[Rfam]
Shown here is a 111-nucleotide sequence from Rhododendron williamsianum, a member of the family "Small nucleolar RNA snoR100". Its family is annotated with RNA processing and nucleolus in the Gene Ontology.
Nucleotides: 111
Base pairs, nucleotide, nucleotide: 012028014027015026016025017024043094046091047090053084055082057078058077059076
Number, partner (000 for none) and nucleotide at each position: 001000g002000a003000a004000u005000g006000a007000a008000g009000g010000a011000a012028g013000c014027g015026u016025g017024g018000u019000a020000a021000u022000u023000a024017u025016u026015a027014c028012c029000a030000c031000a032000a033000a034000a035000a036000u037000u038000g039000a040000u041000u042000u043094a044000g045000a046091u047090c048000u049000c050000u051000a052000g053084g054000c055082c056000u057078g058077c059076c060000c061000u062000c063000u064000c065000u066000g067000a068000u069000g070000c071000c072000u073000u074000c075000c076059g077058g078057c079000u080000u081000u082055g083000a084053u085000u086000u087000a088000g089000g090047g091046g092000c093000a094043u095000g096000a097000u098000u099000c100000u101000g102000c103000a104000a105000c106000a107000a108000a109000a110000c111000g
Overview: A reference for the family is Marker et al. (2002), "Experimental RNomics: identification of 140 candidates for small non-messenger RNAs in the plant Arabidopsis thaliana", Curr Biol. By type it is an H/ACA-box small nucleolar RNA. The family has 9 seed sequences and 1,851 matches in Rfam 15.1.